The family of this 74-nucleotide sequence from Senegalimassilia anaerobia is "c-di-GMP-I riboswitch aptamer".
[Rfam]
RNA sequence: UUUUCAUGUCGGCAAAAUCAUCGAAAGGUGAUGACGCAAAGCUAUAGGGCCUGAAAUGGCAGCCAGUUGCACAG
Numbered sequence: 001u002u003u004u005c006a007u008g009u010c011g012g013c014a015a016a017a018u019c020a021u022c023g024a025a026a027g028g029u030g031a032u033g034a035c036g037c038a039a040a041g042c043u044a045u046a047g048g049g050c051c052u053g054a055a056a057u058g059g060c061a062g063c064c065a066g067u068u069g070c071a072c073a074g
Stems, first nucleotide, its partner, number of pairs: 012037002017032006040068004047064002049060003
The family's consensus secondary structure is taken from published work. Rfam's curators write: GEMM was predicted in a large-scale screen for bacterial structured RNA regulatory elements. Its family is annotated with cyclic-di-GMP binding in the Gene Ontology.